[Rfam]
This 108-nucleotide RNA from Arachis hypogaea belongs to the Rfam family "Plant small nucleolar RNA R71".
On this family, see Brown et al., Trends Plant Sci 2003: "Plant snoRNAs: functional evolution and new modes of gene expression".
It is annotated as a C/D-box small nucleolar RNA.
It scores 45 bits against the family's covariance model.
Pairs were carried over by alignment from the consensus structure, which was predicted with PFOLD.
RNA sequence: AAGCAUGACAGAAGGACACUUUUUGGUCAGUUCUUUGUAUCUCUCCCAAGCUUCAUAAAGGGAUUCACCUUCUUUCUGUCUGAAGGUCUGAACAUCCACUCUAAGCUU
Numbered sequence: 001a002a003g004c005a006u007g008a009c010a011g012a013a014g015g016a017c018a019c020u021u022u023u024u025g026g027u028c029a030g031u032u033c034u035u036u037g038u039a040u041c042u043c044u045c046c047c048a049a050g051c052u053u054c055a056u057a058a059a060g061g062g063a064u065u066c067a068c069c070u071u072c073u074u075u076c077u078g079u080c081u082g083a084a085g086g087u088c089u090g091a092a093c094a095u096c097c098a099c100u101c102u103a104a105g106c107u108u
Stems, first nucleotide, its partner, number of pairs: 001108001003106002005102001058075002061072001